[Rfam]
RNA sequence: CCAUUAUAGUCGGGGAGCCUUAAGGCUGAGAUCGCAUUGCGAGACCCGUUGAACCUGAUUCAGUUAGCACUGACGUAGGGAACUAUGGCAACCGAUGA
Numbered sequence: 001c002c003a004u005u006a007u008a009g010u011c012g013g014g015g016a017g018c019c020u021u022a023a024g025g026c027u028g029a030g031a032u033c034g035c036a037u038u039g040c041g042a043g044a045c046c047c048g049u050u051g052a053a054c055c056u057g058a059u060u061c062a063g064u065u066a067g068c069a070c071u072g073a074c075g076u077a078g079g080g081a082a083c084u085a086u087g088g089c090a091a092c093c094g095a096u097g098a
Stems, first nucleotide, its partner, number of pairs: 006086005011048004017026003033041003054079004060073004